A member of the RNA family "PhotoRC-II RNA", 94 nucleotides long. The family's RNA type in Rfam is cis-regulatory element. Rfam's curators put it in the seed alignment.
RNA sequence: UAACGGUUCGUAACACUCCCCAAACCAAGACCUAUAGGGUGUAUAAAAACGUCUUUAAUACCUCUGCCUAGGGCGCAGAGGAAUAGUAAAACCA
Numbered sequence: 001u002a003a004c005g006g007u008u009c010g011u012a013a014c015a016c017u018c019c020c021c022a023a024a025c026c027a028a029g030a031c032c033u034a035u036a037g038g039g040u041g042u043a044u045a046a047a048a049a050c051g052u053c054u055u056u057a058a059u060a061c062c063u064c065u066g067c068c069u070a071g072g073g074c075g076c077a078g079a080g081g082a083a084u085a086g087u088a089a090a091a092c093c094a
Stems, first nucleotide, its partner, number of pairs: 016041001018039003027055005061081007